RNA: Eukaryotic large subunit ribosomal RNA, nucleotides 2452 to 3044
RNA sequence: CGGGGAAAGAAGACCCUGUUGAGCUUGACUCUAGUUUGACAUUGUGAAGAGACAUAGAGGGUGUAGCAUAAGUGGGAGCUUCGGCGCCAGUGAAAUACCACUACCUUUAUCGUUUCUUUACUUAUUCAAUUAAGCAGGAUUGGUUGUCAUGACCAGUUUCUAGACUUAAGCCGGUUCGUCCGGUGACCUGGGUUGAAGACAUUGUCAGGUGGGGAGUUUGGCUGGGGCGGCACAUCUGUUAAAAGAUAACGCAGGUGUCCUAAGGGGGGCUCAUCGAGACCAGAAAUCUCGAGUAGAACAAAAGGGUAAAAGCCUCCUUGAUUUUGAUUUUCAGUGUGAAUACAAACCACGAAAGUGUGGCCUAUCGAUCCUUUAGUCAUUAGAUAUUUUAAUCUAGAGGUGUCAGAAAAGUUACCACAGGGAUAACUGGCUUGUGGCAGCCAAGCGUUCAUAGCGACGUUGCUUUUUGAUCCUUCGAUGUCGGCUCUUCCUAUCAUUAAGAAGCAGAAUUCUUAAAGUGUCGGAUUGUUCACCCGCCAAUAGGGAACGUGAGCUGGGUUUAGACCGUCGUGAGACAGGUUAGUUUUACCCUA
Numbered sequence: 001c002g003g004g005g006a007a008a009g010a011a012g013a014c015c016c017u018g019u020u021g022a023g024c025u026u027g028a029c030u031c032u033a034g035u036u037u038g039a040c041a042u043u044g045u046g047a048a049g050a051g052a053c054a055u056a057g058a059g060g061g062u063g064u065a066g067c068a069u070a071a072g073u074g075g076g077a078g079c080u081u082c083g084g085c086g087c088c089a090g091u092g093a094a095a096u097a098c099c100a101c102u103a104c105c106u107u108u109a110u111c112g113u114u115u116c117u118u119u120a121c122u123u124a125u126u127c128a129a130u131u132a133a134g135c136a137g138g139a140u141u142g143g144u145u146g147u148c149a150u151g152a153c154c155a156g157u158u159u160c161u162a163g164a165c166u167u168a169a170g171c172c173g174g175u176u177c178g179u180c181c182g183g184u185g186a187c188c189u190g191g192g193u194u195g196a197a198g199a200c201a202u203u204g205u206c207a208g209g210u211g212g213g214g215a216g217u218u219u220g221g222c223u224g225g226g227g228c229g230g231c232a233c234a235u236c237u238g239u240u241a242a243a244a245g246a247u248a249a250c251g252c253a254g255g256u257g258u259c260c261u262a263a264g265g266g267g268g269g270c271u272c273a274u275c276g277a278g279a280c281c282a283g284a285a286a287u288c289u290c291g292a293g294u295a296g297a298a299c300a301a302a303a304g305g306g307u308a309a310a311a312g313c314c315u316c317c318u319u320g321a322u323u324u325u326g327a328u329u330u331u332c333a334g335u336g337u338g339a340a341u342a343c344a345a346a347c348c349a350c351g352a353a354a355g356u357g358u359g360g361c362c363u364a365u366c367g368a369u370c371c372u373u374u375a376g377u378c379a380u381u382a383g384a385u386a387u388u389u390u391a392a393u394c395u396a397g398a399g400g401u402g403u404c405a406g407a408a409a410a411g412u413u414a415c416c417a418c419a420g421g422g423a424u425a426a427c428u429g430g431c432u433u434g435u436g437g438c439a440g441c442c443a444a445g446c447g448u449u450c451a452u453a454g455c456g457a458c459g460u461u462g463c464u465u466u467u468u469g470a471u472c473c474u475u476c477g478a479u480g481u482c483g484g485c486u487c488u489u490c491c492u493a494u495c496a497u498u499a500a501g502a503a504g505c506a507g508a509a510u511u512c513u514u515a516a517a518g519u520g521u522c523g524g525a526u527u528g529u530u531c532a533c534c535c536g537c538c539a540a541u542a543g544g545g546a547a548c549g550u551g552a553g554c555u556g557g558g559u560u561u562a563g564a565c566c567g568u569c570g571u572g573a574g575a576c577a578g579g580u581u582a583g584u585u586u587u588a589c590c591c592u593a
Base pairs, nucleotide, nucleotide: 003592004591005590007587008586015421016420017419018418020417021416022413023412024411025410026409028217029216030215031214035209036208037207038206039205040204041203044121045120046119047118048117049116050115051114052113053112054110055109056108057107058106059105060104071102072101073100074099075098078085079084125197126196127195128194129193135190136189137188138187142154143153144152145151146150170184171183172182173181174180220233221231222230223229234256235255236254237253238252239251259360260359265317266316267315268314269313270312271297272296274292275291276290277289278288279287298307299306322346323345324344327341328340329339330338348357349356350355371399372398373397374396375395376394379393380392381391382390430471432469434468436464437463438462439461440460441459445455446454482557483555484554485553486552487549488546489545490544491543492542495520496519498515499514500513501512502511503510522536523535524534526532563581564580565579566578567576568575569574